[Rfam]
RNA sequence: GGAGAAGGCAUGGGGCCCAGUAGGCGCAUUCAUGUUGCAAUUCUUGUUAGGUUAUUAUAAAUCUGUGAAUUCUGUU
Dot-bracket structure: ...........[[[[...((((((.(((.......)))..]]]]...((((((......)))))).....))))))

Background:
Shown here is a 76-nucleotide RNA from Microcaecilia unicolor, a member of the family "Mammalian CPEB3 ribozyme". Pairs were carried over by alignment from the consensus structure, which is taken from published work. Lineage of the source: Eukaryota > Vertebrata > Teleostomi > Euteleostomi > Microcaecilia.